Notes
The record is an 82-nucleotide sequence from Maledivibacter halophilus, which matches "Glycine riboswitch aptamer" in Rfam. It scores 50 bits against the family's covariance model. The organism belongs to Maledivibacter, within Bacteria.

RNA sequence: CUCUGGAAAGACCUAAAUGGCGCCGAAGGAGCAAUACAUUAUAUCUUUAGAAAUGUAGAAUCUCUCAGGCAAAGAGACAGAG
Numbered sequence: 001c002u003c004u005g006g007a008a009a010g011a012c013c014u015a016a017a018u019g020g021c022g023c024c025g026a027a028g029g030a031g032c033a034a035u036a037c038a039u040u041a042u043a044u045c046u047u048u049a050g051a052a053a054u055g056u057a058g059a060a061u062c063u064c065u066c067a068g069g070c071a072a073a074g075a076g077a078c079a080g081a082g
Stems, first nucleotide, its partner, number of pairs: 001082005012020002022070003025066002029064003035057006